[Rfam]
RNA sequence: GUCACGCUGAAGCAGCACAACAAUAUUGGGGUUGAAGGGAUUUUUACACGCCAAUAUUUACGUGCUGCUAGGGCGGGAC
Numbered sequence: 001g002u003c004a005c006g007c008u009g010a011a012g013c014a015g016c017a018c019a020a021c022a023a024u025a026u027u028g029g030g031g032u033u034g035a036a037g038g039g040a041u042u043u044u045u046a047c048a049c050g051c052c053a054a055u056a057u058u059u060a061c062g063u064g065c066u067g068c069u070a071g072g073g074c075g076g077g078a079c
Stems, first nucleotide, its partner, number of pairs: 001079003005075003011069008020059001022058008
mir-16 microRNA precursor family: a 79-nucleotide RNA sequence from Certhia familiaris. The family has 14 seed sequences and 4,705 matches in Rfam 15.1. Gene Ontology terms of the family: miRNA-mediated post-transcriptional gene silencing and RISC complex. The literature on the family includes a 2020 paper in Mol Cell by Partin et al., "Cryo-EM Structures of Human Drosha and DGCR8 in Complex with Primary MicroRNA".